The family of this 64-nucleotide sequence from Equus caballus is "mir-703 microRNA precursor family". The base pairs follow the family's consensus structure, which was predicted with RNAalifold. Rfam links the family to the GO terms miRNA-mediated post-transcriptional gene silencing and RISC complex.
RNA sequence: UAAAACCUUCAGAAGGAAAGGAGAAUGUUUUGUGGACCAUUUGGUUUUUUGUGUGGCAGUUUUA
Numbered sequence: 001u002a003a004a005a006c007c008u009u010c011a012g013a014a015g016g017a018a019a020g021g022a023g024a025a026u027g028u029u030u031u032g033u034g035g036a037c038c039a040u041u042u043g044g045u046u047u048u049u050u051g052u053g054u055g056g057c058a059g060u061u062u063u064a
Base pairs, nucleotide, nucleotide: 001064002063003062004061005060006059007056008055010053011052013050014048015047016046017045020042021041022040026039027038